[Rfam]
RNA: pan motif
Organism: Anaerosacchariphilus polymeriproducens
RNA sequence: CGGAUAGUAUUCCGAAAAGAAACUAUACCUUAAUAAUAGUAAUUAGAUUAAUGUAGACAGCUCAUAUCCAGUUGGAAUGAGACUCAUAA
Numbered sequence: 001c002g003g004a005u006a007g008u009a010u011u012c013c014g015a016a017a018a019g020a021a022a023c024u025a026u027a028c029c030u031u032a033a034u035a036a037u038a039g040u041a042a043u044u045a046g047a048u049u050a051a052u053g054u055a056g057a058c059a060g061c062u063c064a065u066a067u068c069c070a071g072u073u074g075g076a077a078u079g080a081g082a083c084u085c086a087u088a089a
Stems, first nucleotide, its partner, number of pairs: 002029002004026005010021002059084002061081005067076003
Dot-bracket structure: .(((((((.((........))))))).)).............................(((((((.(((....)))))))).)).....